[Rfam]
RNA sequence: CAUUGGUAGCCUCGCAACAUUGUUCUAUGAAUCCCGCCAGGACCGGAAGGUAGCAACGGUAAUAGUUAUAAUGUGUGCCGAGGAUGUGCUGAUGGAGU
Numbered sequence: 001c002a003u004u005g006g007u008a009g010c011c012u013c014g015c016a017a018c019a020u021u022g023u024u025c026u027a028u029g030a031a032u033c034c035c036g037c038c039a040g041g042a043c044c045g046g047a048a049g050g051u052a053g054c055a056a057c058g059g060u061a062a063u064a065g066u067u068a069u070a071a072u073g074u075g076u077g078c079c080g081a082g083g084a085u086g087u088g089c090u091g092a093u094g095g096a097g098u
Stems, first nucleotide, its partner, number of pairs: 004091005010083005015075001017074006025065004034059003042051003
RNA: Bacterial small signal recognition particle RNA
Organism: Psychrobacter arcticus